Shown here is a 76-nucleotide RNA from Candidatus Filomicrobium marinum, a member of the family "Makes More Granules Regulator RNA (mmgR)". By type it is a small RNA. The pairing is the family consensus, mapped onto this sequence. About the family: SuhB later renamed mmgR (makes more granules regulator) was a putative non-coding RNA found multiple times in the Agrobacterium tumefaciens genome and related alpha-proteobacteria. Other non-coding RNAs uncovered in the same analysis include: speF, ybhL, metA, and serC.Several studies inSinorhizobium meliloti showed that suhB element is indeed a non-coding RNA:firstly it was detected on Northern blot and called Sm8RNA, secondly in an RNAseq study referred to as SmelC689.The mutant phenotype's (strain lacking the small RNA) cytoplasm contains higher content of polyhydroxybutyrate (PBH)storage granules than wild type strain. The sRNA is required to limit the PBH intracellular accumulation when the nitrogen-fixing Sinorhizobium meliloti is under condition of surplus carbon in relation to nitrogen. It has been renamed to mmgR. Further study confirmed that mmgR fine-tunes the regulation of PBH storage.Northern blot confirmed the expression of the sRNA in other rhizobia species.
RNA sequence: UGCCGCAGCCCUCCUUGGGCGUUUCCUCCCUAGACUUGGGCCGUUCGUUUUCGAGCGGCCCCUUUUCUUUUUGGGG
Numbered sequence: 001u002g003c004c005g006c007a008g009c010c011c012u013c014c015u016u017g018g019g020c021g022u023u024u025c026c027u028c029c030c031u032a033g034a035c036u037u038g039g040g041c042c043g044u045u046c047g048u049u050u051u052c053g054a055g056c057g058g059c060c061c062c063u064u065u066u067c068u069u070u071u072u073g074g075g076g
Stems, first nucleotide, its partner, number of pairs: 008020004038061009